[Rfam]
RNA: Plant signal recognition particle RNA
Organism: Oryza sativa
RNA sequence: GCCGAGCCAAGUAGCGAUGGCUUGUCACCCGAGCGGGGGCAAUAAGGUGGUGCGGGAUGCCUGGUCGUUUGCGCUUGGGCCUGGGCCUGUGGUUCGCUCUAUGCGGCCCGCCCGUUCCAAGUUGCGUAGCGUGUAUGGGGUGCCCUGGCGAAAGCUAGAGCGUCCCUGCACCUAGAGUGGCGGGUAUUGCGUGAGGCUGGUUUCACAGAGCAGCGAGUACCGCCCGCUUCCAACGGUGGAAGGAUAACGGGCCGCUGCAGCCCUGGCCCGCUUCCGGCCCAUGUGCCUUCCAUGGCAGACCCCCAUCUUU
Numbered sequence: 001g002c003c004g005a006g007c008c009a010a011g012u013a014g015c016g017a018u019g020g021c022u023u024g025u026c027a028c029c030c031g032a033g034c035g036g037g038g039g040c041a042a043u044a045a046g047g048u049g050g051u052g053c054g055g056g057a058u059g060c061c062u063g064g065u066c067g068u069u070u071g072c073g074c075u076u077g078g079g080c081c082u083g084g085g086c087c088u089g090u091g092g093u094u095c096g097c098u099c100u101a102u103g104c105g106g107c108c109c110g111c112c113c114g115u116u117c118c119a120a121g122u123u124g125c126g127u128a129g130c131g132u133g134u135a136u137g138g139g140g141u142g143c144c145c146u147g148g149c150g151a152a153a154g155c156u157a158g159a160g161c162g163u164c165c166c167u168g169c170a171c172c173u174a175g176a177g178u179g180g181c182g183g184g185u186a187u188u189g190c191g192u193g194a195g196g197c198u199g200g201u202u203u204c205a206c207a208g209a210g211c212a213g214c215g216a217g218u219a220c221c222g223c224c225c226g227c228u229u230c231c232a233a234c235g236g237u238g239g240a241a242g243g244a245u246a247a248c249g250g251g252c253c254g255c256u257g258c259a260g261c262c263c264u265g266g267c268c269c270g271c272u273u274c275c276g277g278c279c280c281a282u283g284u285g286c287c288u289u290c291c292a293u294g295g296c297a298g299a300c301c302c303c304c305a306u307c308u309u310u
Base pairs, nucleotide, nucleotide: 001040002039003038004023005022006021007020008019009018028037029036030035044309045308046307047306048305049304050303052301055300058297059296060294062292063290064289067286068285073284074283076281077280078279079278080277081276083269084268085267086266087265089263092261094260096258098257103255104254105253106252107251108250109249110248112243113242115241116240117239118238119237121234122233123232124231126230128228129227130226131171132170133169134168135167138165139164140163141162142161143160145158146157147156148155149154172177179224180223181222182221183220188217190215191214192213197208198207199206